[Rfam]
The family of this 73-nucleotide RNA sequence from Feifania hominis is "S10-Clostridia ribosomal protein leader". Taxonomically the source falls in Feifania (Bacteria, Bacillati, Eubacteriales, Feifaniaceae). The match comes from Rfam's covariance-model search (41 bits).
Nucleotides: 073
Stems, first nucleotide, its partner, number of pairs: 014046003018043004025036004053072004
Number, partner (000 for none) and nucleotide at each position: 001000g002000g003000u004000c005000u006000g007000c008000g009000a010000u011000g012000a013000c014046g015045c016044g017000g018043g019042a020041g021040g022000u023000u024000g025036c026035c027034a028033c029000g030000c031000a032000a033028g034027u035026g036025g037000g038000u039000u040021u041020u042019u043018c044016c045015g046014c047000u048000g049000a050000g051000u052000a053072u054071g055070u056069c057000c058000g059000g060000g061000a062000a063000u064000c065000g066000g067000g068000c069056g070055a071054c072053g073000a